Overview: Saccharopolyspora sRNA 350: a 520-nucleotide RNA sequence from Actinokineospora bangkokensis. Lineage of the source: Bacteria > Bacillati > Actinomycetes > Pseudonocardiales > Actinokineospora. For this family Rfam cites "Prediction and characterization of small non-coding RNAs related to secondary metabolites in Saccharopolyspora erythraea" (Liu et al., PLoS One, 2013). Rfam 15.1 lists 1,170 matches to the family in 705 species. A search with the family's covariance model found it, with a score of 106 bits.
Nucleotides: 520
Base pairs, nucleotide, nucleotide: 006390007389008388009387010386011385014382015381016380018328019327021325022324024321025320026319027318029316032313033312034311035310036309037308039306043304047303048302049301050300051299052298054233057230058229059228060227061226062225063224065111066110068108075103077102079100083096085094086093117222119220122217127212129210130209132205133204134203135202139196140195146191150189151188152187153186154185159183161177164174165173237293240290241289243287249283251281254278256277257276258275260271261270329342330341331340332339351379353377355375356374363369391431392430394428395427397425399423401421403418404417405416407415437476438475440473443470444469446467448464449463451461452460480517481516482515484514485513486512487511488510
Number, partner (000 for none) and nucleotide at each position: 001000c002000g003000g004000a005000c006390g007389g008388u009387g010386u011385g012000c013000u014382c015381c016380c017000a018328g019327g020000u021325g022324g023000c024321g025320u026319c027318g028000g029316u030000g031000c032313u033312c034311a035310g036309c037308a038000g039306c040000g041000a042000c043304g044000c045000c046000u047303c048302g049301c050300c051299g052298a053000a054233g055000a056000a057230c058229u059228c060227g061226c062225c063224g064000u065111c066110g067000g068108c069000c070000a071000g072000c073000c074000g075103g076000u077102c078000c079100a080000c081000c082000g083096c084000c085094g086093c087000c088000u089000c090000g091000u092000c093086g094085c095000c096083g097000a098000a099000c100079u101000c102077g103075c104000c105000c106000u107000c108068g109000g110066u111065g112000u113000a114000c115000c116000g117222g118000g119220u120000g121000a122217c123000c124000u125000u126000g127212c128000c129210g130209u131000g132205g133204g134203c135202g136000a137000u138000c139196a140195g141000g142000u143000a144000g145000a146191g147000c148000c149000c150189g151188u152187c153186g154185g155000c156000g157000g158000c159183c160000g161177c162000a163000c164174c165173g166000c167000c168000g169000g170000u171000c172000a173165c174164g175000a176000c177161g178000g179000u180000c181000u182000c183159g184000c185154c186153c187152g188151a189150c190000c191146c192000c193000a194000c195140c196139u197000g198000c199000c200000g201000c202135u203134g204133c205132u206000g207000g208000a209130a210129c211000c212127g213000g214000c215000c216000c217122g218000c219000g220119a221000g222117c223000u224063c225062g226061g227060u228059g229058a230057g231000c232000a233054c234000c235000g236000c237293g238000u239000c240290g241289u242000c243287g244000g245000c246000g247000a248000c249283c250000c251281c252000g253000c254278g255000c256277a257276g258275c259000a260271g261270c262000c263000c264000g265000a266000c267000c268000u269000c270261g271260c272000g273000c274000a275258g276257c277256u278254c279000c280000g281251g282000c283249g284000g285000c286000a287243c288000c289241a290240c291000c292000g293237c294000c295000a296000c297000g298052u299051c300050g301049g302048c303047g304043c305000c306039g307000g308037u309036g310035u311034u312033g313032g314000u315000g316029a317000a318027c319026g320025a321024c322000a323000c324022c325021c326000g327019c328018c329342c330341g331340u332339c333000g334000c335000c336000c337000a338000g339332g340331g341330u342329g343000u344000a345000g346000g347000u348000c349000a350000g351379c352000c353377g354000c355375c356374g357000g358000u359000u360000c361000a362000c363369c364000c365000g366000g367000u368000a369363g370000a371000c372000c373000g374356c375355g376000c377353c378000c379351g380016g381015g382014g383000u384000c385011u386010g387009c388008a389007c390006c391431c392430a393000c394428g395427g396000c397425a398000g399423c400000a401421u402000g403418c404417g405416c406000a407415g408000c409000a410000g411000c412000c413000a414000c415407c416405g417404c418403g419000g420000c421401g422000a423399g424000a425397u426000c427395u428394c429000c430392u431391g432000c433000a434000u435000c436000u437476g438475c439000g440473g441000g442000a443470c444469g445000g446467a447000c448464u449463u450000g451461g452460u453000g454000g455000u456000c457000g458000u459000g460452g461451c462000g463449a464448g465000c466000u467446u468000g469444c470443g471000c472000g473440c474000g475438g476437c477000u478000g479000a480517g481516g482515u483000g484514c485513c486512g487511a488510g489000c490000g491000c492000g493000g494000u495000g496000g497000g498000g499000g500000u501000g502000u503000g504000c505000u506000g507000g508000u509000c510488c511487u512486c513485g514484g515482a516481c517480u518000c519000a520000a